Rfam assigns this 112-nucleotide RNA sequence from Orycteropus afer to the family "Small nucleolar RNA U6-53/MBII-28". The match comes from Rfam's covariance-model search (71 bits). The organism belongs to Orycteropus afer, within Eukaryota. By type it is a C/D-box small nucleolar RNA. The family has 25 seed sequences and 780 matches in Rfam 15.1. For this family Rfam cites "RNomics: an experimental approach that identifies 201 candidates for novel, small, non-messenger RNAs in mouse" (Huttenhofer et al., EMBO J, 2001). Its family is annotated with RNA processing and nucleolus in the Gene Ontology.
RNA sequence: CCCCUAUGAUGAGUUGUCAUGAUAAUACUGAGAUACCAAGUGGGGGUUUUACUCUUCAUUGGGUCUUAUUGAAGUAAAUUCUAUUUUUUUCUCUUAAAUCUACUUGAGGGAC
Numbered sequence: 001c002c003c004c005u006a007u008g009a010u011g012a013g014u015u016g017u018c019a020u021g022a023u024a025a026u027a028c029u030g031a032g033a034u035a036c037c038a039a040g041u042g043g044g045g046g047u048u049u050u051a052c053u054c055u056u057c058a059u060u061g062g063g064u065c066u067u068a069u070u071g072a073a074g075u076a077a078a079u080u081c082u083a084u085u086u087u088u089u090u091c092u093c094u095u096a097a098a099u100c101u102a103c104u105u106g107a108g109g110g111a112c
Stems, first nucleotide, its partner, number of pairs: 002110003042055004